[Rfam]
RNA sequence: CUGCAUGUAGCUACCCGUGCUCGUCUAAGAUCAAUGUGAUUAUGCGAAGAAGAAAAAGAAGUUCCAAUGCUCAUGCUAAAUUGAUCUCCCUGCUAGUGUUGCAUAUUAGCUCUCUGUACCUCUUUUCCAUGGCUGAUUUGUGUUAAUUCAACGGCUACACUU
Numbered sequence: 001c002u003g004c005a006u007g008u009a010g011c012u013a014c015c016c017g018u019g020c021u022c023g024u025c026u027a028a029g030a031u032c033a034a035u036g037u038g039a040u041u042a043u044g045c046g047a048a049g050a051a052g053a054a055a056a057a058g059a060a061g062u063u064c065c066a067a068u069g070c071u072c073a074u075g076c077u078a079a080a081u082u083g084a085u086c087u088c089c090c091u092g093c094u095a096g097u098g099u100u101g102c103a104u105a106u107u108a109g110c111u112c113u114c115u116g117u118a119c120c121u122c123u124u125u126u127c128c129a130u131g132g133c134u135g136a137u138u139u140g141u142g143u144u145a146a147u148u149c150a151a152c153g154g155c156u157a158c159a160c161u162u
Base pairs, nucleotide, nucleotide: 003076004075005074006073007072010070011069017064019062020061021060022058024055026053090154091153092152094150097145098144100142101141102140103139105137109133110132111131
Shown here is a 162-nucleotide RNA sequence from Ipomoea nil, a member of the family "small nucleolar RNA snoR134". Its family is annotated with nucleolus and RNA processing in the Gene Ontology.